[Rfam]
RNA sequence: AUGGACCACGCGUCCACUGCGGUUCUGAGCGCGCCGCCCACACCCAACUGACGACUGCUCGCUACGUCCUGCCAGCC
Numbered sequence: 001a002u003g004g005a006c007c008a009c010g011c012g013u014c015c016a017c018u019g020c021g022g023u024u025c026u027g028a029g030c031g032c033g034c035c036g037c038c039c040a041c042a043c044c045c046a047a048c049u050g051a052c053g054a055c056u057g058c059u060c061g062c063u064a065c066g067u068c069c070u071g072c073c074a075g076c077c
Stems, first nucleotide, its partner, number of pairs: 002016005020036004025031001048075003052071002